[Rfam]
RNA sequence: UGGUGCCCAACAGUGAGGUGUGAAUAAGGGGGAAUUCGCGAGGGAAGAGGCAUUUAAUGGUUCCAGUGAACAAAGCAGAAGUCAGUUAAAGAAGGAUCGCCGCAGGAGCCCGCCACGCCAUUCUUAAAGGUACAGUAAUGCCUAACUAUGGGACAAGAAUUAAGUAAGCAUAAAGUUUUUGUUAAGCAAUUAAAAGAAGCUUUAAAGACACGGCAGGGAGUAAAGGUUAAGAGUAAUGAUCUUUUUAAGUUUUUUGACCUUAUUAAGGACACCUGUCCAU
Numbered sequence: 001u002g003g004u005g006c007c008c009a010a011c012a013g014u015g016a017g018g019u020g021u022g023a024a025u026a027a028g029g030g031g032g033a034a035u036u037c038g039c040g041a042g043g044g045a046a047g048a049g050g051c052a053u054u055u056a057a058u059g060g061u062u063c064c065a066g067u068g069a070a071c072a073a074a075g076c077a078g079a080a081g082u083c084a085g086u087u088a089a090a091g092a093a094g095g096a097u098c099g100c101c102g103c104a105g106g107a108g109c110c111c112g113c114c115a116c117g118c119c120a121u122u123c124u125u126a127a128a129g130g131u132a133c134a135g136u137a138a139u140g141c142c143u144a145a146c147u148a149u150g151g152g153a154c155a156a157g158a159a160u161u162a163a164g165u166a167a168g169c170a171u172a173a174a175g176u177u178u179u180u181g182u183u184a185a186g187c188a189a190u191u192a193a194a195a196g197a198a199g200c201u202u203u204a205a206a207g208a209c210a211c212g213g214c215a216g217g218g219a220g221u222a223a224a225g226g227u228u229a230a231g232a233g234u235a236a237u238g239a240u241c242u243u244u245u246u247a248a249g250u251u252u253u254u255u256g257a258c259c260u261u262a263u264u265a266a267g268g269a270c271a272c273c274u275g276u277c278c279a280u
Stems, first nucleotide, its partner, number of pairs: 006031003036050002039047001095123001096121002101117002105113001136156001139153001141152004161204003164200002214256008224242006265280001267278004